[Rfam]
RNA sequence: ACAUCAUGGUUGAAAUAAGAUUUAUCAUGAGGAGUCAGCCGAGGCCAUAGUACCUUAUGGGCUAUAGACCAUGAGGAAAGGGC
Numbered sequence: 001a002c003a004u005c006a007u008g009g010u011u012g013a014a015a016u017a018a019g020a021u022u023u024a025u026c027a028u029g030a031g032g033a034g035u036c037a038g039c040c041g042a043g044g045c046c047a048u049a050g051u052a053c054c055u056u057a058u059g060g061g062c063u064a065u066a067g068a069c070c071a072u073g074a075g076g077a078a079a080g081g082g083c
Stems, first nucleotide, its partner, number of pairs: 001022001004020002007017002010014001035042002044083003053076008
Shown here is an 83-nucleotide sequence, a member of the family "Group II catalytic intron D1-D4-1". The family has 237 seed sequences and 2,508 matches in Rfam 15.1. Rfam describes the family as follows. Group II introns are found in rRNA, tRNA and mRNA of organelles in fungi, plants and protists, and also in mRNA in bacteria. Gene Ontology term of the family: Group II intron splicing.